This 131-nucleotide RNA sequence from Takifugu flavidus belongs to the Rfam family "Small nucleolar RNA SNORA63". The base pairs follow the family's consensus structure, which was predicted with PFOLD. Rfam links the family to the GO terms nucleolus and RNA processing. From the family's description: E3 belongs to the H/ACA class of snoRNAs and is involved in the processing of eukaryotic pre-rRNA and has regions of complementarity to 18S rRNA. E3 is encoded in introns in the gene for protein synthesis initiation factor 4AII. The organism belongs to Takifugu, within Eukaryota. The family's RNA type in Rfam is H/ACA-box small nucleolar RNA.

[Rfam]
RNA sequence: AUGCAGGAUAAGUUACAGUGCAGCCUGUGUAGUGCUGUGUUGUCGUUCCCCCUGCAAAAAAUGACAUGUUUCCUCGCUAUACCUGUCAAGUCAACUUCCCUAGAUUGACAGGGACGUAAGGUUUCAGACAA
Numbered sequence: 001a002u003g004c005a006g007g008a009u010a011a012g013u014u015a016c017a018g019u020g021c022a023g024c025c026u027g028u029g030u031a032g033u034g035c036u037g038u039g040u041u042g043u044c045g046u047u048c049c050c051c052c053u054g055c056a057a058a059a060a061a062u063g064a065c066a067u068g069u070u071u072c073c074u075c076g077c078u079a080u081a082c083c084u085g086u087c088a089a090g091u092c093a094a095c096u097u098c099c100c101u102a103g104a105u106u107g108a109c110a111g112g113g114a115c116g117u118a119a120g121g122u123u124u125c126a127g128a129c130a131a
Stems, first nucleotide, its partner, number of pairs: 003055005015043010082112004087107003